[Rfam]
A member of the RNA family "Small Cajal body specific RNA 15" from Rhynochetos jubatus, 131 nucleotides long. The family's RNA type in Rfam is small Cajal body RNA. On this family, see Darzacq et al., EMBO J 2002: "Cajal body-specific small nuclear RNAs: a novel class of 2'-O-methylation and pseudouridylation guide RNAs". The source organism's lineage runs through Eukaryota, Coelurosauria, Neognathae, Rhynochetidae and Rhynochetos. About the family: scaRNAs are a specific class of small nuclear RNAs which localise to the Cajal bodies and guide the modification of RNA polymerase II transcribed spliceosomal RNAs U1, U2, U4, U5 and U12. ACA45 belongs to the H/ACA box class of guide RNAs as it has the predicted hairpin-hinge-hairpin-tail structure, the conserved H/ACA-box motifs and is found associated with GAR1.

RNA sequence: CGGGAGGACUAAGAAAGUGGAGCCGGUGCCGUUAUACUGGCUCCGCUGAUACUAUCCUCCGAAAUGAAACGGUGGGAGAACAAGGCCUGCCUGUGAGCUAAAGCCAGGGCCUGCUUCGUCCACCUACAAGG
Numbered sequence: 001c002g003g004g005a006g007g008a009c010u011a012a013g014a015a016a017g018u019g020g021a022g023c024c025g026g027u028g029c030c031g032u033u034a035u036a037c038u039g040g041c042u043c044c045g046c047u048g049a050u051a052c053u054a055u056c057c058u059c060c061g062a063a064a065u066g067a068a069a070c071g072g073u074g075g076g077a078g079a080a081c082a083a084g085g086c087c088u089g090c091c092u093g094u095g096a097g098c099u100a101a102a103g104c105c106a107g108g109g110c111c112u113g114c115u116u117c118g119u120c121c122a123c124c125u126a127c128a129a130g131g
Stems, first nucleotide, its partner, number of pairs: 003060006010051002018045007026035003071124006078117001083112003086108004